Shown here is an 85-nucleotide RNA, a member of the family "c-di-GMP-I riboswitch aptamer". Pairs were carried over by alignment from the consensus structure, which is taken from published work. Rfam describes the family as follows. GEMM was predicted in a large-scale screen for bacterial structured RNA regulatory elements. The sequence is in the family's curated seed alignment. Gene Ontology term of the family: cyclic-di-GMP binding.
RNA sequence: UUUUGUAAAAGGCAAAAUAAAUGAAAAUUUAUGACGCAAAGCCAAGGUCUAAGAGCUAUAUGCUUAUGAUAGCUAGGUUGCACAA
Numbered sequence: 001u002u003u004u005g006u007a008a009a010a011g012g013c014a015a016a017a018u019a020a021a022u023g024a025a026a027a028u029u030u031a032u033g034a035c036g037c038a039a040a041g042c043c044a045a046g047g048u049c050u051a052a053g054a055g056c057u058a059u060a061u062g063c064u065u066a067u068g069a070u071a072g073c074u075a076g077g078u079u080g081c082a083c084a085a
Base pairs, nucleotide, nucleotide: 012037013036017032018031019030020029021028022027040079041078042077043076045074046073047070048069049068054064055063056062
Dot-bracket structure: ...........((...((((((....))))))...))..((((.(((((....(((.....)))...)))..)).))))......